[Rfam]
RNA sequence: UGACGGGGGCCCGCACAAGCGGUGGAGCGUGUGGUUUAAUUCGAAGCUAAGCGAAGAACCUCACCAGGUCUUGACAUAUAAGUGGUAGGGAAGCGAAAGCUAACCGACCCUAGUUUACUAGGGAGCUUAUACAGGUGGUGCAUGGUCGUCGUCAGCUCGUGCCGUGAGGUGUUGGGUUAAGUCCCGCAACGAGCGCAACCCUUGUUUUUAGUUGCCAGCAUUUAGGUGGGCACUCUAAAGAGACUGCCGUCGAAGAGACGGAGGAAGGAGGGGACGACGUCAGAUCAUCAUGCCCCUUAUGAUCUGGGCUACACACGCGCUACAAUGGGUUAGGCAGAAGGCGAAACUGCAAAGUGGAGGCAAUCCGAAAACUAACCCCCAGUUCAGAUUGCAGGCUGAAACCCGCCUGCAUGAAGUCGGAAUCGCUAGUAAUCGCAGAUCAGAACGCUGCGGUGAAUACGUUCCCGGGCCUUGUACACACCGCCCGUCACACCACCCGAGUUGGGAAUACCUGAAGAGCAUGGCAAGCUGACCGGCAACGGGAGCAGUGCUUUAAGGUAGGCUUAGCGAGGGGGGUGAAGUCGUAACAAGG
Number, nucleotide and partner (000 for none) at each position: 001u478002g477003a475004c474005g473006g000007g472008g471009g470010c469011c468012c467013g466014c000015a462016c461017a000018a000019g426020c425021g424022g423023u422024g323025g000026a321027g320028c319029g318030u317031g316032u315033g314034g312035u311036u000037u000038a000039a000040u055041u054042c053043g052044a000045a000046g000047c000048u000049a000050a000051g000052c043053g042054a041055a040056g000057a000058a000059c000060c000061u000062c000063a000064c307065c306066a305067g304068g303069u302070c301071u000072u000073g000074a000075c000076a000077u131078a130079u129080a128081a127082g126083u125084g000085g000086u000087a000088g105089g104090g000091a000092a101093g100094c099095g000096a000097a000098a000099g094100c093101u092102a000103a000104c089105c088106g000107a000108c123109c122110c121111u120112a119113g118114u000115u000116u000117a000118c113119u112120a111121g110122g109123g108124a000125g083126c082127u081128u080129a079130u078131a077132c000133a000134g296135g295136u000137g294138g293139u292140g291141c000142a000143u290144g289145g285146u284147c283148g281149u000150c279151g278152u000153c000154a000155g194156c193157u192158c191159g190160u189161g170162c169163c168164g000165u000166g000167a000168g163169g162170u161171g000172u000173u186174g185175g184176g183177u000178u000179a000180a000181g000182u000183c176184c175185c174186g173187c000188a000189a160190c159191g158192a157193g156194c155195g000196c000197a000198a000199c000200c273201c272202u271203u270204g000205u241206u240207u239208u238209u237210a236211g235212u000213u000214g000215c230216c229217a000218g000219c228220a227221u000222u000223u000224a000225g000226g000227u220228g219229g216230g215231c000232a000233c000234u000235c211236u210237a209238a208239a207240g206241a205242g000243a000244c264245u263246g000247c261248c260249g259250u258251c257252g000253a000254a000255g000256a000257g251258a250259c249260g248261g247262a000263g245264g244265a000266a000267g000268g000269a000270g203271g202272g201273g200274a000275c000276g000277a000278c151279g150280u000281c148282a000283g147284a146285u145286c000287a000288u000289c144290a143291u140292g139293c138294c137295c135296c134297u000298u000299a000300u000301g070302a069303u068304c067305u066306g065307g064308g000309c000310u000311a035312c034313a000314c033315a032316c031317g030318c029319g028320c027321u026322a000323c024324a000325a000326u000327g378328g377329g376330u375331u374332a373333g372334g000335c000336a000337g000338a000339a000340g366341g365342c359343g000344a000345a000346a355347c354348u353349g000350c000351a000352a000353a348354g347355u346356g000357g000358a000359g342360g000361c000362a000363a000364u000365c341366c340367g000368a000369a000370a000371a000372c333373u332374a331375a330376c329377c328378c327379c000380c000381a000382g000383u000384u000385c416386a000387g000388a000389u000390u411391g410392c409393a408394g407395g406396c405397u000398g000399a000400a000401a000402c000403c000404c000405g396406c395407c394408u393409g392410c391411a390412u000413g000414a000415a000416g385417u000418c000419g000420g000421a000422a023423u022424c021425g020426c019427u000428a000429g000430u000431a000432a454433u453434c452435g451436c450437a449438g448439a000440u000441c000442a000443g000444a000445a000446c000447g000448c438449u437450g436451c435452g434453g433454u432455g000456a000457a000458u000459a000460c000461g016462u015463u000464c000465c000466c013467g012468g011469g010470c009471c008472u007473u005474g004475u003476a000477c002478a001479c000480a000481c591482c000483g588484c000485c000486c584487g583488u000489c000490a000491c578492a577493c576494c575495a000496c573497c572498c571499g000500a000501g568502u567503u566504g565505g564506g563507a000508a000509u560510a559511c558512c557513u000514g000515a000516a000517g553518a552519g551520c550521a549522u548523g000524g000525c000526a000527a000528g546529c545530u544531g000532a000533c542534c541535g000536g000537c000538a000539a000540c000541g534542g533543g000544a530545g529546c528547a000548g522549u521550g520551c519552u518553u517554u000555a000556a000557g512558g511559u510560a509561g000562g000563c506564u505565u504566a503567g502568c501569g000570a000571g498572g497573g496574g000575g494576g493577u492578g491579a000580a000581g000582u000583c487584g486585u000586a000587a000588c483589a000590a000591g481592g000
A member of the RNA family "Bacterial small subunit ribosomal RNA", 592 nucleotides of a longer RNA.
It scores 1443 bits against the family's covariance model.